[Rfam]
Shown here is a 116-nucleotide RNA sequence from Caballeronia glathei, a member of the family "Burkholderia sRNA Bp1_Cand684_SIPHT". The source organism's lineage runs through Bacteria, Pseudomonadati, Betaproteobacteria, Burkholderiales and Caballeronia. By type it is a small RNA. The match comes from Rfam's covariance-model search (45 bits).
RNA sequence: AAGAAAGUGACUGCUGCCCCGCACAGGGGCGAGCUAAUAGACCAUUAAGAAAGCAAGUUUCAUCGAGGUCGAAGCGCAUCAGACGGUUCUAUAACCGCCCCAAGCGCUAGCGAUAU
Numbered sequence: 001a002a003g004a005a006a007g008u009g010a011c012u013g014c015u016g017c018c019c020c021g022c023a024c025a026g027g028g029g030c031g032a033g034c035u036a037a038u039a040g041a042c043c044a045u046u047a048a049g050a051a052a053g054c055a056a057g058u059u060u061c062a063u064c065g066a067g068g069u070c071g072a073a074g075c076g077c078a079u080c081a082g083a084c085g086g087u088u089c090u091a092u093a094a095c096c097g098c099c100c101c102a103a104g105c106g107c108u109a110g111c112g113a114u115a116u
Stems, first nucleotide, its partner, number of pairs: 012078003015031006057070001059066002103108001